Notes: This 131-nucleotide RNA from Labrus bergylta belongs to the Rfam family "Small Cajal body specific RNA 8". Pairs were carried over by alignment from the consensus structure, which is taken from published work.
[Rfam]
RNA sequence: UGGGAGGCAGAUACAUUGGCAGUGCUAAGCCUUGCUCUGUCCGUCACAAGUCCUCCCUACAGCAUAAGAGCUCUCUGAUGACCGUGGCGAAUUGAGAGAAAUCGCCACGGACAGAUACGGAGCUGACACUC
Numbered sequence: 001u002g003g004g005a006g007g008c009a010g011a012u013a014c015a016u017u018g019g020c021a022g023u024g025c026u027a028a029g030c031c032u033u034g035c036u037c038u039g040u041c042c043g044u045c046a047c048a049a050g051u052c053c054u055c056c057c058u059a060c061a062g063c064a065u066a067a068g069a070g071c072u073c074u075c076u077g078a079u080g081a082c083c084g085u086g087g088c089g090a091a092u093u094g095a096g097a098g099a100a101a102u103c104g105c106c107a108c109g110g111a112c113a114g115a116u117a118c119g120g121a122g123c124u125g126a127c128a129c130u131c
Stems, first nucleotide, its partner, number of pairs: 002057006015044002018041001022037001024035002069124006082110003087105004
Its family is annotated with RNA processing, nucleolus and Cajal body in the Gene Ontology. Rfam's curators write: scaRNAs are a specific class of small nuclear RNAs which localise to the Cajal bodies and guide the modification of RNA polymerase II transcribed spliceosomal RNAs U1, U2, U4, U5 and U12. A search with the family's covariance model found it, with a score of 120 bits.